[Rfam]
This 134-nucleotide sequence from Cellulosimicrobium funkei belongs to the Rfam family "SAM (S-adenosyl methionine) riboswitch aptamer".
Rfam describes the family as follows. SAM-IV is a mRNA element that regulates gene expression via direct sensing of S-adenosylmethionine (SAM or AdoMet). SAM-IV riboswitches share conserved nucleotide positions with the previously described SAM-I riboswitches sequence analysis and molecular recognition experiments suggest that SAM-I and SAM-IV riboswitches share similar ligand binding sites, but have different scaffolds.
NCBI's taxonomy places the organism under Bacteria, Actinomycetota, Actinomycetes, Promicromonosporaceae, Cellulosimicrobium.
RNA sequence: GGUCACGAGCACCAGUGCCAAGCCCCGGCUCGCUGGUCGGCAACCCCCUGUCACGGCGGGGUGCUCCGGGAGAUGACCAGGCCGCGCGCGACCGGCCCCGCACCCGCGGGACGGCCGCGCGGCAAGCGUGAUCG
Numbered sequence: 001g002g003u004c005a006c007g008a009g010c011a012c013c014a015g016u017g018c019c020a021a022g023c024c025c026c027g028g029c030u031c032g033c034u035g036g037u038c039g040g041c042a043a044c045c046c047c048c049u050g051u052c053a054c055g056g057c058g059g060g061g062u063g064c065u066c067c068g069g070g071a072g073a074u075g076a077c078c079a080g081g082c083c084g085c086g087c088g089c090g091a092c093c094g095g096c097c098c099c100g101c102a103c104c105c106g107c108g109g110g111a112c113g114g115c116c117g118c119g120c121g122g123c124a125a126g127c128g129u130g131a132u133c134g
Stems, first nucleotide, its partner, number of pairs: 001078004009038001011037006021030002039065003044061003047056002081123008